[Rfam]
Shown here is a 63-nucleotide RNA, a member of the family "DUF3800-IX RNA". Rfam describes the family as follows. Actinobacteria, Firmicutes (1 example), Nitrospirae, Proteobacteria, Verrucomicrobia (1 example).
RNA sequence: GACCGAAACUCGAACUGUAGCCUUUAUGGCUUGCGUUCCGAAAGGAUAGAGUUUCGGUUUUUU
Numbered sequence: 001g002a003c004c005g006a007a008a009c010u011c012g013a014a015c016u017g018u019a020g021c022c023u024u025u026a027u028g029g030c031u032u033g034c035g036u037u038c039c040g041a042a043a044g045g046a047u048a049g050a051g052u053u054u055c056g057g058u059u060u061u062u063u
Base pairs, nucleotide, nucleotide: 001059002058003057004056005055006054007053008052009051010050011049016035017034018033019031020030021029022028037046038045039044